Description
Shown here is a 73-nucleotide sequence, a member of the family "Plastid-ycf2 5UTR RNA". About the family: Plastid ycf2 is a non-coding RNA (ncRNA) recognised in plastids. It was found in the prime untranslated region (5UTR) of ycf2 genes, it presents a tRNA-like motif which suggests it can be involved in mRNA maturation, particularly involved in defining the precise 5' end of the transcript. The literature on the family includes a 2023 paper in Plant Commun by Richter et al., "Retrograde signaling in plants: A critical review focusing on the GUN pathway and beyond". It is one of the family's seed sequences. It is annotated as a cis-regulatory element. The family's consensus secondary structure was predicted with LocARNA.
Nucleotides: 073
Base pairs, nucleotide, nucleotide: 002073003072004071005070006069007068009025010024011023012022013021038067039066040065042064043063044062045061046060048058049057
Number, partner (000 for none) and nucleotide at each position: 001000u002073g003072c004071a005070u006069c007068c008000a009025g010024u011023a012022g013021g014000a015000a016000u017000c018000g019000a020000a021013c022012c023011u024010a025009c026000u027000u028000a029000a030000a031000u032000c033000c034000a035000a036000u037000u038067a039066u040065g041000a042064g043063u044062u045061g046060g047000g048058u049057g050000c051000u052000u053000a054000u055000a056000c057049c058048a059000a060046u061045c062044a063043g064042c065040c066039a067038u068007g069006g070005a071004u072003g073002c